[Rfam]
RNA: t44 RNA
RNA sequence: ACAGAAAUCACCUUACGUCACACAUACGUCGUCACAUGCGUUUGGGUGCCCGGUCGGCGGGGUAAUAGCCACUGCGAAUCGAGUCAAUGCAUGGGACGUAUGGAGGCCCAAC
Numbered sequence: 001a002c003a004g005a006a007a008u009c010a011c012c013u014u015a016c017g018u019c020a021c022a023c024a025u026a027c028g029u030c031g032u033c034a035c036a037u038g039c040g041u042u043u044g045g046g047u048g049c050c051c052g053g054u055c056g057g058c059g060g061g062g063u064a065a066u067a068g069c070c071a072c073u074g075c076g077a078a079u080c081g082a083g084u085c086a087a088u089g090c091a092u093g094g095g096a097c098g099u100a101u102g103g104a105g106g107c108c109c110a111a112c
Stems, first nucleotide, its partner, number of pairs: 023102008035093008048084002051081004